[Rfam]
Annotation: The family of this 92-nucleotide sequence from Neisseria elongata is "Neisseria metabolic switch regulator b (RcoF1/NgncR163)". Its family is annotated with mRNA binding, regulation of translation, ncRNA-mediated and tricarboxylic acid cycle in the Gene Ontology. The source organism's lineage runs through Bacteria, Pseudomonadati, Neisseriales, Neisseria elongata and Neisseria elongata subsp. glycolytica. Rfam classes the family as a small RNA. The family's consensus secondary structure was predicted with RNAfold. A reference for the family is Bauer et al. (2017), "The sibling sRNAs NgncR_162 and NgncR_163 of Neisseria gonorrhoeae participate in the expression control of metabolic, transport and regulatory proteins", Microbiology.

RNA sequence: CCGUUAAGUGGCUUGCAAUAGCGGCUUAACAGUUUCUCCUCUAUUUCUCCUUUGUAGACUUGGCACACAUUUGAAAAAAUGUGUGCAUUUUU
Numbered sequence: 001c002c003g004u005u006a007a008g009u010g011g012c013u014u015g016c017a018a019u020a021g022c023g024g025c026u027u028a029a030c031a032g033u034u035u036c037u038c039c040u041c042u043a044u045u046u047c048u049c050c051u052u053u054g055u056a057g058a059c060u061u062g063g064c065a066c067a068c069a070u071u072u073g074a075a076a077a078a079a080u081g082u083g084u085g086c087a088u089u090u091u092u
Stems, first nucleotide, its partner, number of pairs: 003030007011022001040058005063086010